[Rfam]
RNA: L31-Actinobacteria ribosomal protein leader
RNA sequence: UCGGUUCCGGUUCACGCCCGAUACCCACAGGUCAUGUACGGGCGACCCGGCGGCC
Numbered sequence: 001u002c003g004g005u006u007c008c009g010g011u012u013c014a015c016g017c018c019c020g021a022u023a024c025c026c027a028c029a030g031g032u033c034a035u036g037u038a039c040g041g042g043c044g045a046c047c048c049g050g051c052g053g054c055c
Stems, first nucleotide, its partner, number of pairs: 003055003007050004015044006021037002